Background:
The family of this 119-nucleotide RNA sequence from Fusarium torreyae is "tRNA". A search with the family's covariance model found it, with a score of 48 bits.
Nucleotides: 119
Stems, first nucleotide, its partner, number of pairs: 001118007010026003028081005095111005
Number, partner (000 for none) and nucleotide at each position: 001118g002117u003116c004115a005114a006113g007112a008000u009000g010026g011025c012024c013000g014000a015000g016000u017000g018000g019000u020000c021000u022000a023000a024012g025011g026010c027000g028081c029080u030079g031078c032077a033000c034000u035000c036000a037000a038000g039000a040000u041000c042000c043000u044000u045000g046000c047000g048000a049000g050000g051000u052000c053000u054000u055000u056000c057000c058000c059000a060000u061000a062000a063000g064000a065000g066000a067000u068000g069000g070000g071000a072000c073000g074000c075000a076000u077032u078031g079030c080029a081028g082000u083000a084000u085000c086000g087000a088000a089000a090000g091000a092000u093000u094000c095111u096110u097109g098108g099107g100000u101000u102000c103000g104000a105000a106000u107099c108098c109097c110096a111095a112007u113006c114005u115004u116003g117002a118001c119000a